[Rfam]
RNA sequence: GGGGUUCGAUAGACUUACCUCCACGUGGUGCACCCCGGGCAACGUAUUCUCAUACGGCAAAAAAGUUCUG
Numbered sequence: 001g002g003g004g005u006u007c008g009a010u011a012g013a014c015u016u017a018c019c020u021c022c023a024c025g026u027g028g029u030g031c032a033c034c035c036c037g038g039g040c041a042a043c044g045u046a047u048u049c050u051c052a053u054a055c056g057g058c059a060a061a062a063a064a065g066u067u068c069u070g
Base pairs, nucleotide, nucleotide: 001036002035003034004033005032007030017029018028019027043056044055045054046053047052
Source information:
HDV ribozyme from F. prausnitzii: a 70-nucleotide sequence from Rodentolepis nana. The family's consensus secondary structure is taken from published work. It scores 48 bits against the family's covariance model.